Notes: Shown here is an 87-nucleotide sequence from Catharus fuscescens, a member of the family "Small nucleolar RNA SNORD86". It scores 35 bits against the family's covariance model. By type it is a C/D-box small nucleolar RNA. Its family is annotated with RNA processing and nucleolus in the Gene Ontology. U86 belongs to the C/D family of snoRNAs. Rfam 15.1 lists 274 matches to the family in 139 species.

RNA sequence: GAGGGUUCAGAAGGGCAGAAGUGGGGAGCUGCACCCCUGCUCCUCUCCUGGUGGGGGUUGGUGACCUCUCCCUUUCUCUGAGCCCUC
Numbered sequence: 001g002a003g004g005g006u007u008c009a010g011a012a013g014g015g016c017a018g019a020a021g022u023g024g025g026g027a028g029c030u031g032c033a034c035c036c037c038u039g040c041u042c043c044u045c046u047c048c049u050g051g052u053g054g055g056g057g058u059u060g061g062u063g064a065c066c067u068c069u070c071c072c073u074u075u076c077u078c079u080g081a082g083c084c085c086u087c
Base pairs, nucleotide, nucleotide: 001087002086003085004084005083006082010078012077013076019075020074021073023071024070025069026068027067029063033059035057036056040054041053042051043050
Dot-bracket structure: ((((((...(.((.....(((.(((((.(...(.((...((((......)).)).)).)...)...))))).))))))...))))))